[Rfam]
RNA sequence: CCUGCUGUUCCCUCAGCAGUAGCCUACCGCCACAUGCGGCCUUGGUAACGAGACGGUGUGAAGCUGGCGGGACAAAGUAACCCAUACCCGAAAGGGUUAAGCUGAAUCCGUGAGGAUGAAGCGUAUCUACAAGCAUAAUGUGGAAGGGGGC
Numbered sequence: 001c002c003u004g005c006u007g008u009u010c011c012c013u014c015a016g017c018a019g020u021a022g023c024c025u026a027c028c029g030c031c032a033c034a035u036g037c038g039g040c041c042u043u044g045g046u047a048a049c050g051a052g053a054c055g056g057u058g059u060g061a062a063g064c065u066g067g068c069g070g071g072a073c074a075a076a077g078u079a080a081c082c083c084a085u086a087c088c089c090g091a092a093a094g095g096g097u098u099a100a101g102c103u104g105a106a107u108c109c110g111u112g113a114g115g116a117u118g119a120a121g122c123g124u125a126u127c128u129a130c131a132a133g134c135a136u137a138a139u140g141u142g143g144a145a146g147g148g149g150g151c
Base pairs, nucleotide, nucleotide: 002019003018004017005016006015007014028069029068030067031066032065033060034059035058036057037056039054041052042051043050044049086097087096088095089094101122102121103120108115109114126144127143128142129141130140131139
RNA: Group II catalytic intron D1-D4-7